Notes: Shown here is a 110-nucleotide RNA from Sphingomonas sp. Leaf20, a member of the family "TPP riboswitch aptamer (THI element)". Rfam links the family to the GO term thiamine pyrophosphate binding. It scores 71 bits against the family's covariance model. The source organism's lineage runs through Bacteria, Pseudomonadati, Alphaproteobacteria, Sphingomonadales and Sphingomonas.
RNA sequence: GCGCCUUCCCCGGGGGGCCGCUGACGCGCGGCUGAGAAUUGGGCUGCAGCCCAUGACCCGCUGAACCUGAUCCGGCUGAUACCGGCGUAGGGAGGGCCAACGGUUUUUCC
Dot-bracket structure: .......(((((((.((((((......))))).......(((((....))))))..)))).....((((..((((......))))..))))..)))..............